[Rfam]
RNA sequence: AGAGGUUAUGGGGCCAUAGAAGGAGCGUUCACGUCACGGUCCCUGUCAGGUAUCUGUUUAUCUGCGAAUCCUUCU
Dot-bracket structure: .........[[[[[[..((((((((.(.......).)]]]]]]...((((((......))))))....)))))))
RNA: Mammalian CPEB3 ribozyme
Organism: Laticauda laticaudata